[Rfam]
RNA sequence: UACCACCAAAAUCCUAUCUUCACCUCCACGCGGUGACCGCUGAGAGCUCUUUAUUAACGUAAAGCUACAGACAGAGUAGG
Numbered sequence: 001u002a003c004c005a006c007c008a009a010a011a012u013c014c015u016a017u018c019u020u021c022a023c024c025u026c027c028a029c030g031c032g033g034u035g036a037c038c039g040c041u042g043a044g045a046g047c048u049c050u051u052u053a054u055u056a057a058c059g060u061a062a063a064g065c066u067a068c069a070g071a072c073a074g075a076g077u078a079g080g
Base pairs, nucleotide, nucleotide: 013080014079015078016077017076019074020073022034023033024032045066046065047064048063050061052059

This 80-nucleotide sequence from Hermetia illucens belongs to the Rfam family "drz-agam-1 ribozyme". Rfam 15.1 lists 10,507 matches to the family in 53 species. NCBI's taxonomy places the organism under Eukaryota, Bilateria, Panarthropoda, Arthropoda, Hermetia. A search with the family's covariance model found it, with a score of 43 bits. Rfam links the family to the GO term catalytic activity.